[Rfam]
Notes:
This 398-nucleotide sequence from Aristophania vespae belongs to the Rfam family "Bacterial RNase P class A". By type it is a ribozyme. The family's consensus secondary structure is taken from published work. Lineage of the source: Bacteria > Pseudomonadota > Acetobacterales > Acetobacteraceae > Aristophania.
RNA sequence: UCAGACGGUCGGGCGAUCGCUAAGGUAAUAUUUACCUUGGAGGAAAGUCCGGGCUCCACAGAAAAACGGUGCCGGCUAACGGCCGGCGAGGGUGACCUUAGGGAAAGUGCCACAGAAACAAAACAGCUUGCCGGCUUUUUAGUUUUCUGAAAAGUGCAAGUAAAGGUGAAACGGUGCGGUAAAAGCGCACCGCGCUUUUGGCAACAAGAGCGGUCAUGGUAAACCCCACCGGGAGCAAAACCGAAUAGGAACAGCUGACUUAAUUAUAAGUCAGAGGAUUCUGCCUCGCUGUUCGGGUUGGUUGCGUGAGACAGGUUGUAAAACCUGCCCUAGAUGAAUGAUCGCCCCAUUUCUUUCAUGAAAUUGGACAGAACCCGGCUUAUAGACCGUCUGACUCU
Numbered sequence: 001u002c003a004g005a006c007g008g009u010c011g012g013g014c015g016a017u018c019g020c021u022a023a024g025g026u027a028a029u030a031u032u033u034a035c036c037u038u039g040g041a042g043g044a045a046a047g048u049c050c051g052g053g054c055u056c057c058a059c060a061g062a063a064a065a066a067c068g069g070u071g072c073c074g075g076c077u078a079a080c081g082g083c084c085g086g087c088g089a090g091g092g093u094g095a096c097c098u099u100a101g102g103g104a105a106a107g108u109g110c111c112a113c114a115g116a117a118a119c120a121a122a123a124c125a126g127c128u129u130g131c132c133g134g135c136u137u138u139u140u141a142g143u144u145u146u147c148u149g150a151a152a153a154g155u156g157c158a159a160g161u162a163a164a165g166g167u168g169a170a171a172c173g174g175u176g177c178g179g180u181a182a183a184a185g186c187g188c189a190c191c192g193c194g195c196u197u198u199u200g201g202c203a204a205c206a207a208g209a210g211c212g213g214u215c216a217u218g219g220u221a222a223a224c225c226c227c228a229c230c231g232g233g234a235g236c237a238a239a240a241c242c243g244a245a246u247a248g249g250a251a252c253a254g255c256u257g258a259c260u261u262a263a264u265u266a267u268a269a270g271u272c273a274g275a276g277g278a279u280u281c282u283g284c285c286u287c288g289c290u291g292u293u294c295g296g297g298u299u300g301g302u303u304g305c306g307u308g309a310g311a312c313a314g315g316u317u318g319u320a321a322a323a324c325c326u327g328c329c330c331u332a333g334a335u336g337a338a339u340g341a342u343c344g345c346c347c348c349a350u351u352u353c354u355u356u357c358a359u360g361a362a363a364u365u366g367g368a369c370a371g372a373a374c375c376c377g378g379c380u381u382a383u384a385g386a387c388c389g390u391c392u393g394a395c396u397c398u
Stems, first nucleotide, its partner, number of pairs: 001394010011383001012346007020040009045381003049378005054235004062282001065280001067231005072086005087101001088099004102226002107224002109220003124165001126161006173191006192215001193212008239303004249294006274287004310329001312327006